[Rfam]
RNA sequence: CGCAUCGACCCGCCUAAUCGUGGUCUCACGAACCGGGGACCCACCGCACCACUGGGGUGAAUCCGCGAGCAUCGGCUCACGGUAGGGCCAACUUCCCGCCCGAACCCGUCAGCUAACCCGGUCGGCGGUGUCGGAAGGAGCU
Numbered sequence: 001c002g003c004a005u006c007g008a009c010c011c012g013c014c015u016a017a018u019c020g021u022g023g024u025c026u027c028a029c030g031a032a033c034c035g036g037g038g039a040c041c042c043a044c045c046g047c048a049c050c051a052c053u054g055g056g057g058u059g060a061a062u063c064c065g066c067g068a069g070c071a072u073c074g075g076c077u078c079a080c081g082g083u084a085g086g087g088c089c090a091a092c093u094u095c096c097c098g099c100c101c102g103a104a105c106c107c108g109u110c111a112g113c114u115a116a117c118c119c120g121g122u123c124g125g126c127g128g129u130g131u132c133g134g135a136a137g138g139a140g141c142u
Base pairs, nucleotide, nucleotide: 011127012126013125014124018031019030020029032122033121034120035119036118037117042054043053055107056106057105063082064081065080085101086100087099088098

Shown here is a 142-nucleotide sequence from Micromonospora craniellae, a member of the family "c-di-AMP riboswitch aptamer (ydaO/yuaA leader)". It scores 88 bits against the family's covariance model.